[Rfam]
RNA sequence: ACGCCUUCUGCGGGAGAGAGAGCUGCGAACAUGCAGUCUCCGCCGAAGGCGCAAGCUCCCAUAAUCGCUCAGGCAUACGGAACCGCAGAGAUCAU
Dot-bracket structure: .....((((((((......(((...............))).(((((..(((...(......)...))))).)))........)))))))).....